RNA sequence: UUGAAGCUCCAUCUACAAAUGGAUAAGAUUUCGGUCUUUGUGUAUACGAGUUUUUGAAAAUGACGGAGCAAUACCGACCUUCUUGCAAGAAAUUGGUAUUGCUCCGUUAUU
Numbered sequence: 001u002u003g004a005a006g007c008u009c010c011a012u013c014u015a016c017a018a019a020u021g022g023a024u025a026a027g028a029u030u031u032c033g034g035u036c037u038u039u040g041u042g043u044a045u046a047c048g049a050g051u052u053u054u055u056g057a058a059a060a061u062g063a064c065g066g067a068g069c070a071a072u073a074c075c076g077a078c079c080u081u082c083u084u085g086c087a088a089g090a091a092a093u094u095g096g097u098a099u100u101g102c103u104c105c106g107u108u109a110u111u
Base pairs, nucleotide, nucleotide: 008023009022010021011020012019062108063107064106065105066104067103068102069101070100071099072098073097074096077094080091081090082089083088
RNA: Plastid-psbA-1 3UTR RNA
Organism: Sclerocarya birrea